[Rfam]
RNA sequence: UGAUUUCUUCGGGGCAGGGCGAAAUUCCCUACCGGCGGUAUAGUCCGCGAACCGCGAUGGCGGCCGAUUCGGUGAGAUUCCGAAACCGACAGUAUAGUCUGGAUGAGAGAAGAGGCAG
Numbered sequence: 001u002g003a004u005u006u007c008u009u010c011g012g013g014g015c016a017g018g019g020c021g022a023a024a025u026u027c028c029c030u031a032c033c034g035g036c037g038g039u040a041u042a043g044u045c046c047g048c049g050a051a052c053c054g055c056g057a058u059g060g061c062g063g064c065c066g067a068u069u070c071g072g073u074g075a076g077a078u079u080c081c082g083a084a085a086c087c088g089a090c091a092g093u094a095u096a097g098u099c100u101g102g103a104u105g106a107g108a109g110a111a112g113a114g115g116c117a118g
Base pairs, nucleotide, nucleotide: 004115005114006113007112008111009110010109017029018028019027031098032097033088034087035048036047037046038045043086044085052063053062068084069083070082071081072080090101091100092099
FMN riboswitch aptamer (RFN element): a 118-nucleotide RNA from Clostridium sp. CAG:43. The RFN element is a highly conserved domain that is found frequently in the 5'-untranslated regions of prokaryotic mRNAs that encode for flavin mononucleotide (FMN) biosynthesis and transport proteins. Lineage of the source: Bacteria > Bacillota > Clostridia > Eubacteriales > Clostridium.